[Rfam]
RNA sequence: UGUAUUUGUGAUGAUCACUGGUGCCAGAUGAGUUAUGCAUCAUGGUCACAGGUCUGCGAGUCCGAGGUCCAC
Numbered sequence: 001u002g003u004a005u006u007u008g009u010g011a012u013g014a015u016c017a018c019u020g021g022u023g024c025c026a027g028a029u030g031a032g033u034u035a036u037g038c039a040u041c042a043u044g045g046u047c048a049c050a051g052g053u054c055u056g057c058g059a060g061u062c063c064g065a066g067g068u069c070c071a072c
Base pairs, nucleotide, nucleotide: 002070004068005067006066
Shown here is a 72-nucleotide RNA sequence, a member of the family "Small nucleolar RNA SNORD113/SNORD114 family". Clan: SNORD74 clan. The family's consensus secondary structure is taken from published work. The sequence is in the family's curated seed alignment. From the family's description: The imprinted human domain at 14q32 contains two clusters of tandemly repeated small nucleolar RNAs named 14q(I) and 14q(II) snoRNAs. These two clusters are named SNORD113 and SNORD114 respectively in the HGNC approved gene symbol nomenclature. It is annotated as a C/D-box small nucleolar RNA.